A member of the RNA family "MIR2619 microRNA precursor family" from Medicago truncatula, 191 nucleotides long. A search with the family's covariance model found it, with a score of 150 bits. The family's consensus secondary structure was predicted with RNAalifold.
[Rfam]
RNA sequence: AAACAGCUCCCUAUGUAUUGGAGUUUUGGCCUCCAAAGGCACUUUUGACUUAGUCUUCGCUGAUGUGUCACCCACAAUGGUCGUCACGUGGCACCUCACUUAAGGGAUGUGGGUGCCACGUCAGCGAAAACUAAAUCAAAAGUGGUCUUGGGGGCCAAAACUGCCAAUGAUCUAAUACAUAUGGGUUGUUU
Numbered sequence: 001a002a003a004c005a006g007c008u009c010c011c012u013a014u015g016u017a018u019u020g021g022a023g024u025u026u027u028g029g030c031c032u033c034c035a036a037a038g039g040c041a042c043u044u045u046u047g048a049c050u051u052a053g054u055c056u057u058c059g060c061u062g063a064u065g066u067g068u069c070a071c072c073c074a075c076a077a078u079g080g081u082c083g084u085c086a087c088g089u090g091g092c093a094c095c096u097c098a099c100u101u102a103a104g105g106g107a108u109g110u111g112g113g114u115g116c117c118a119c120g121u122c123a124g125c126g127a128a129a130a131c132u133a134a135a136u137c138a139a140a141a142g143u144g145g146u147c148u149u150g151g152g153g154g155c156c157a158a159a160a161c162u163g164c165c166a167a168u169g170a171u172c173u174a175a176u177a178c179a180u181a182u183g184g185g186u187u188g189u190u191u
Stems, first nucleotide, its partner, number of pairs: 001191002004188005012181010022162015063121002066118002069115005

The organism belongs to Medicago, within Eukaryota. Rfam links the family to the GO terms RISC complex and miRNA-mediated post-transcriptional gene silencing.